[Rfam]
RNA: Bacterial RNase P class A
RNA sequence: AGGCAAAACCGGGUGACCGCCGCGGCGGGGGCAACCCAGCCGGGGAGGAAAGUCCGGGCUCCUCUGGACAGGGUGCUGGGUAACUCCCAGGCUUCUGCGGCAGCCUCACCGCUGCCCAGGGGACGGAAAGUGGCACAGAAACAUACCGCCUCCGGCAAGAGCAUUAUGACGGGGGUAAGGUUGAAAUCGGACGGUAAGAGCGUCCGGUCGUCUGCGGUGACGCAGCGACGGUCAAACCCCACCUGGAGCAAGGCCGAAUAGGGGGACUAUGGGUGUCCGGCUCGUCCCCGGGUUGGCUGCUUGACCCCGAUGGUAACGUCGUCCGGCGCCUUUAAAAAGCGCCGACUUGCGGAUUGCCCCAAAGGCGCUUCGCGAGGGGCUAGAUAGAUGGUCACCGUCUCUCCGGGCCCGCCGCCCAUUCCCUAAUUUCAGGCGGUCUGCGGAGGGAUACAGAACCCGGCUUACAGGUUUUGCCAGCCC
Numbered sequence: 001a002g003g004c005a006a007a008a009c010c011g012g013g014u015g016a017c018c019g020c021c022g023c024g025g026c027g028g029g030g031g032c033a034a035c036c037c038a039g040c041c042g043g044g045g046a047g048g049a050a051a052g053u054c055c056g057g058g059c060u061c062c063u064c065u066g067g068a069c070a071g072g073g074u075g076c077u078g079g080g081u082a083a084c085u086c087c088c089a090g091g092c093u094u095c096u097g098c099g100g101c102a103g104c105c106u107c108a109c110c111g112c113u114g115c116c117c118a119g120g121g122g123a124c125g126g127a128a129a130g131u132g133g134c135a136c137a138g139a140a141a142c143a144u145a146c147c148g149c150c151u152c153c154g155g156c157a158a159g160a161g162c163a164u165u166a167u168g169a170c171g172g173g174g175g176u177a178a179g180g181u182u183g184a185a186a187u188c189g190g191a192c193g194g195u196a197a198g199a200g201c202g203u204c205c206g207g208u209c210g211u212c213u214g215c216g217g218u219g220a221c222g223c224a225g226c227g228a229c230g231g232u233c234a235a236a237c238c239c240c241a242c243c244u245g246g247a248g249c250a251a252g253g254c255c256g257a258a259u260a261g262g263g264g265g266a267c268u269a270u271g272g273g274u275g276u277c278c279g280g281c282u283c284g285u286c287c288c289c290g291g292g293u294u295g296g297c298u299g300c301u302u303g304a305c306c307c308c309g310a311u312g313g314u315a316a317c318g319u320c321g322u323c324c325g326g327c328g329c330c331u332u333u334a335a336a337a338a339g340c341g342c343c344g345a346c347u348u349g350c351g352g353a354u355u356g357c358c359c360c361a362a363a364g365g366c367g368c369u370u371c372g373c374g375a376g377g378g379g380c381u382a383g384a385u386a387g388a389u390g391g392u393c394a395c396c397g398u399c400u401c402u403c404c405g406g407g408c409c410c411g412c413c414g415c416c417c418a419u420u421c422c423c424u425a426a427u428u429u430c431a432g433g434c435g436g437u438c439u440g441c442g443g444a445g446g447g448a449u450a451c452a453g454a455a456c457c458c459g460g461c462u463u464a465c466a467g468g469u470u471u472u473g474c475c476a477g478c479c480c
Base pairs, nucleotide, nucleotide: 002475003474004473005472006471007470008469009468010467011465012396013395014394015393016392017391018390020045021044023042024041025040026039028037050463051462052461054460055459056458057457058456059248060247061246062245067278071244072243073242074241075240076090077089078088079087080086091124092122093121094120095119096118097117125239126238130237131236132233133232134231146180147179148176149175150174151173152172153171154170156168188206189205190204191203192202193201212225213224214223215222216221252298253297254296255295262289263288264287265286266285267284271283272282273281274280305379306378307377308376